[Rfam]
Small nucleolar RNA snoR2/U65: a 154-nucleotide RNA from Ceratopteris richardii. NCBI's taxonomy places the organism under Eukaryota, Viridiplantae, Streptophytina, Polypodiopsida, Ceratopteris. It scores 45 bits against the family's covariance model. It is annotated as an H/ACA-box small nucleolar RNA. Rfam 15.1 lists 908 matches to the family in 230 species. The family's consensus secondary structure was predicted with WAR. The family is grouped with related families in Rfam's "SNORA65 clan".
RNA sequence: CGCCAGCAGCCACGGUCUAGGUAGUCAUUGGCAAUGACCUUGUUCGUCAGUGCUGGGCGCAGAUAAAGCCUCUACGGCGGGUCUGCCCUAUUGAUAGGAAGCUGUCUGGUGUUUUUCUAUCGCCUGUGCAGCGCCGAACCGGGUACCCACAUUU
Dot-bracket structure: .(((((((....(((.(..(((.(((...)))....)))..).)))....))))).)).........................(((((........((...(((.(.(((...........))).)..)))..)).....))))).........